[Rfam]
RNA sequence: GGGUGUUCGCCAGUCGUGGCGGGCAGGGUGCAGCGCUGGUCGGGCCGCCGGCG
Dot-bracket structure: ....((((((((....)))))))).........(((((((......)))))))